RNA: TPP riboswitch aptamer (THI element)
RNA sequence: GCACGUGACACGGGGUGCCCUGUCGCUCACUUCAGUAAAUACGGCGUGAGUGGUUGGGGCUGAGAUAAGACCCGUCGAACCUGAUCCAGUUUGUACUGGCGGAGGGAAUGUCGCGGUGCGUAUCC
Numbered sequence: 001g002c003a004c005g006u007g008a009c010a011c012g013g014g015g016u017g018c019c020c021u022g023u024c025g026c027u028c029a030c031u032u033c034a035g036u037a038a039a040u041a042c043g044g045c046g047u048g049a050g051u052g053g054u055u056g057g058g059g060c061u062g063a064g065a066u067a068a069g070a071c072c073c074g075u076c077g078a079a080c081c082u083g084a085u086c087c088a089g090u091u092u093g094u095a096c097u098g099g100c101g102g103a104g105g106g107a108a109u110g111u112c113g114c115g116g117u118g119c120g121u122a123u124c125c
Stems, first nucleotide, its partner, number of pairs: 006113005011074004016068001017060005080105003086099004